The record is an 84-nucleotide RNA from Zootermopsis nevadensis, which matches "Mammalian CPEB3 ribozyme" in Rfam.

RNA sequence: UGCCAAAAAAAGGGGGUCACAGCAGGAGUGUUAAAUGUCGCGGUCCCAUUCGAACCCAUGCACUGAUGGGUCGAGAAUCCUGCU
Number, nucleotide and partner (000 for none) at each position: 001u000002g000003c000004c000005a000006a000007a000008a000009a000010a000011a000012g000013g047014g046015g045016g044017u043018c042019a000020c000021a084022g083023c082024a081025g080026g079027a078028g041029u040030g039031u000032u000033a000034a000035a000036u000037g000038u000039c030040g029041c028042g018043g017044u016045c015046c014047c013048a000049u000050u000051c073052g072053a071054a000055c069056c068057c000058a000059u000060g000061c000062a000063c000064u000065g000066a000067u000068g056069g055070g000071u053072c052073g051074a000075g000076a000077a000078u027079c026080c025081u024082g023083c022084u021

The organism belongs to Zootermopsis, within Eukaryota. The family's consensus secondary structure is taken from published work.